Rfam assigns this 270-nucleotide RNA from Paenibacillus antri to the family "glmS glucosamine-6-phosphate activated ribozyme aptamer". The source organism's lineage runs through Bacteria, Bacillota, Bacilli, Caryophanales and Paenibacillus. The literature on the family includes a 2006 paper in Nat Struct Mol Biol by Jansen et al., "Backbone and nucleobase contacts to glucosamine-6-phosphate in the glmS ribozyme". The family's consensus secondary structure is taken from published work. It is annotated as a riboswitch. About the family: This entry contains a glucosamine-6-phosphate activated ribozyme that is found in the mRNA for GlmS. GlmS is an enzyme that uses fructose-6-phosphate and glutamine to generate glucosamine-6-phosphate. The ribozyme catalyses self cleavage of the glmS mRNA that is thought to regulate GlmS activity.

RNA sequence: CGGGCAUCAUAAGCGCCAGAGCUUGCAUCGGGAUCGGGCGGAGCGGGACGAGACGUUCGGGGACAACCGGACGACGACGUCGCGCUCGCGGAUGGAACGGCUAACGGAAAGCCGUCCAAACGAGAAGCCGAUCGCCGCGACAAGCUGACGAGGUGGAGGCGUUCGAGGAUUUAACGUUCGGCGGGGACCUCCCGGCAGCGCCGCUAGGCCGAAAUUGGGCAUGCAAAACGAGAAGGCGACUUCUCCGACAAACAUCCCAUAGGGCGGCAU
Dot-bracket structure: ...................((((((...................................................................................................................))))))........(((((...((((...........))))......)))))((((((.....))..))))....((((..........((((((....))))))..........))))...........